Rfam assigns this 97-nucleotide sequence from Aegilops tauschii to the family "Small nucleolar RNA R64/Z200 family". Taxonomically the source falls in Aegilops tauschii (Eukaryota, Mesangiospermae, Poaceae, Pooideae). The match comes from Rfam's covariance-model search (56 bits).
RNA sequence: AAAAUGUUGUGACGAAUCAUGAAAUCUACAAUGUAUGUCAGACUUCAGAGAUGCCAUUUGGCAUUGAUGAGAAGAUAUUUCAUAUUCUGAGCAAUAA
Numbered sequence: 001a002a003a004a005u006g007u008u009g010u011g012a013c014g015a016a017u018c019a020u021g022a023a024a025u026c027u028a029c030a031a032u033g034u035a036u037g038u039c040a041g042a043c044u045u046c047a048g049a050g051a052u053g054c055c056a057u058u059u060g061g062c063a064u065u066g067a068u069g070a071g072a073a074g075a076u077a078u079u080u081c082a083u084a085u086u087c088u089g090a091g092c093a094a095u096a097a
Stems, first nucleotide, its partner, number of pairs: 003095001005093003050065004
The literature on the family includes a 2002 paper in Mol Cell Biol by Galardi et al., "Purified box C/D snoRNPs are able to reproduce site-specific 2'-O-methylation of target RNA in vitro". Pairs were carried over by alignment from the consensus structure, which was predicted with PFOLD.